c-di-GMP-I riboswitch aptamer: an 89-nucleotide RNA sequence from Clostridium sp. DL-VIII. The match comes from Rfam's covariance-model search (74 bits). The source organism's lineage runs through Bacteria, Clostridia, Eubacteriales, Clostridiaceae and Clostridium.
[Rfam]
RNA sequence: UGAUGUUAAUAGCAUACUUAUCGAAAGGUAAGGACGCAAAGCUUUGAGUCUAAGGGAAAGUUUUUUUCUAUGAUCGUCAGGUUGCCAAA
Numbered sequence: 001u002g003a004u005g006u007u008a009a010u011a012g013c014a015u016a017c018u019u020a021u022c023g024a025a026a027g028g029u030a031a032g033g034a035c036g037c038a039a040a041g042c043u044u045u046g047a048g049u050c051u052a053a054g055g056g057a058a059a060g061u062u063u064u065u066u067u068c069u070a071u072g073a074u075c076g077u078c079a080g081g082u083u084g085c086c087a088a089a
Base pairs, nucleotide, nucleotide: 012037013036017032018031019030020029021028022027040083041082042081043080045079046078047077048074049073050072055068056067057066058065